Rfam assigns this 203-nucleotide RNA from Paenibacillus wynnii to the family "Lysine riboswitch aptamer". Rfam describes the family as follows. Riboswitches are metabolite binding domains within certain messenger RNAs that serve as precision sensors for their corresponding targets. Taxonomically the source falls in Paenibacillus (Bacteria, Bacillota, Caryophanales, Paenibacillaceae). Its family is annotated with lysine biosynthetic process in the Gene Ontology. The base pairs follow the family's consensus structure, which is taken from published work. It scores 94 bits against the family's covariance model.
RNA sequence: CGAUGAGGUAGAGGUCGCGAAUAUUAAGAGUAGGCACGAGGAGACGUUAAGAGCCGUCUAUGAUCCGCUGCUGAAAGGAAUAUUUGCCGAAGCCUGUGCCGCCGUUCUUGCAGCGGCGCGGGCUGGGGCCGUUACCGAAAGGGACGGAACUGUCACGUUGUUACGCCUUAUCCAGGCUGACUGCGUGUUGCGCUAUCUUCACA
Numbered sequence: 001c002g003a004u005g006a007g008g009u010a011g012a013g014g015u016c017g018c019g020a021a022u023a024u025u026a027a028g029a030g031u032a033g034g035c036a037c038g039a040g041g042a043g044a045c046g047u048u049a050a051g052a053g054c055c056g057u058c059u060a061u062g063a064u065c066c067g068c069u070g071c072u073g074a075a076a077g078g079a080a081u082a083u084u085u086g087c088c089g090a091a092g093c094c095u096g097u098g099c100c101g102c103c104g105u106u107c108u109u110g111c112a113g114c115g116g117c118g119c120g121g122g123c124u125g126g127g128g129c130c131g132u133u134a135c136c137g138a139a140a141g142g143g144a145c146g147g148a149a150c151u152g153u154c155a156c157g158u159u160g161u162u163a164c165g166c167c168u169u170a171u172c173c174a175g176g177c178u179g180a181c182u183g184c185g186u187g188u189u190g191c192g193c194u195a196u197c198u199u200c201a202c203a
Stems, first nucleotide, its partner, number of pairs: 006198006017087009033072004037067002040064001091124012125151002129147005135141001154187005